[Rfam]
RNA: transfer-messenger RNA
RNA sequence: GGGGACGCGUGGUUUCGACAGGGAAGGUAGGCUACUGGAUUGCAGGCUGAGGUGCCAUCCACCUCAUUAAACAGGUGGCAAAAAACAACUGGCGAACGUGAACUCGUUCUUGCUGGCUAAAUAAGACAGCACAUCCUGCUUGGCCCCACCUCAACGGGUCAGGUUUGGGUGCCGAUUAGUUGAGGUGCCGUUUCCCCAACGCCGAUGAGGGGGACGAAAGAAAUAUCGGCUGGUUUGGCUAAAUUAGGCCGGCAAAAGCUAGCCAGACAAGAUUAAAUAGACGGAUAAUCCUGUAGUAGAUCCUGGGUCACCUUUUCUGGACGGGGAGUUCGACCCUCCCCCGUCUCCACCA
Numbered sequence: 001g002g003g004g005a006c007g008c009g010u011g012g013u014u015u016c017g018a019c020a021g022g023g024a025a026g027g028u029a030g031g032c033u034a035c036u037g038g039a040u041u042g043c044a045g046g047c048u049g050a051g052g053u054g055c056c057a058u059c060c061a062c063c064u065c066a067u068u069a070a071a072c073a074g075g076u077g078g079c080a081a082a083a084a085a086c087a088a089c090u091g092g093c094g095a096a097c098g099u100g101a102a103c104u105c106g107u108u109c110u111u112g113c114u115g116g117c118u119a120a121a122u123a124a125g126a127c128a129g130c131a132c133a134u135c136c137u138g139c140u141u142g143g144c145c146c147c148a149c150c151u152c153a154a155c156g157g158g159u160c161a162g163g164u165u166u167g168g169g170u171g172c173c174g175a176u177u178a179g180u181u182g183a184g185g186u187g188c189c190g191u192u193u194c195c196c197c198a199a200c201g202c203c204g205a206u207g208a209g210g211g212g213g214a215c216g217a218a219a220g221a222a223a224u225a226u227c228g229g230c231u232g233g234u235u236u237g238g239c240u241a242a243a244u245u246a247g248g249c250c251g252g253c254a255a256a257a258g259c260u261a262g263c264c265a266g267a268c269a270a271g272a273u274u275a276a277a278u279a280g281a282c283g284g285a286u287a288a289u290c291c292u293g294u295a296g297u298a299g300a301u302c303c304u305g306g307g308u309c310a311c312c313u314u315u316u317c318u319g320g321a322c323g324g325g326g327a328g329u330u331c332g333a334c335c336c337u338c339c340c341c342c343g344u345c346u347c348c349a350c351c352a
Stems, first nucleotide, its partner, number of pairs: 001348007019319009030309003035305001037303005043293004048066005054079006111131005117125002132171005138164003142160004147187007189216006201230005233268008249284002253280001255278001324340005